Description:
Small nucleolar RNA U54: an 88-nucleotide sequence from Rhamnella rubrinervis. The family is grouped with related families in Rfam's "U54 clan". The organism belongs to Rhamnella, within Eukaryota. It scores 50 bits against the family's covariance model. The family's consensus secondary structure was predicted with PFOLD. Rfam's curators write: U54 is a C/D box small nucleolar RNA, which acts as a methylation guide for 18S ribosomal RNA in plants.

[Rfam]
RNA sequence: AGCUCUGUGAUUAUGUGCCUGUAUUGGGCAAUAUACGCUAUUCUGAUAAUGUAUAUGAGCAGAGCUUUGAAAUCGUAGUAUGAGAGCU
Number, nucleotide and partner (000 for none) at each position: 001a088002g087003c086004u085005c084006u000007g000008u000009g000010a000011u000012u000013a000014u000015g000016u000017g000018c000019c000020u000021g000022u000023a000024u000025u000026g000027g000028g000029c000030a000031a000032u000033a000034u000035a000036c000037g000038c000039u000040a000041u000042u000043c000044u000045g000046a000047u000048a000049a000050u000051g000052u000053a000054u000055a000056u000057g000058a000059g000060c000061a000062g000063a000064g000065c000066u000067u000068u000069g000070a000071a000072a000073u000074c000075g000076u000077a000078g000079u000080a000081u000082g000083a000084g005085a004086g003087c002088u001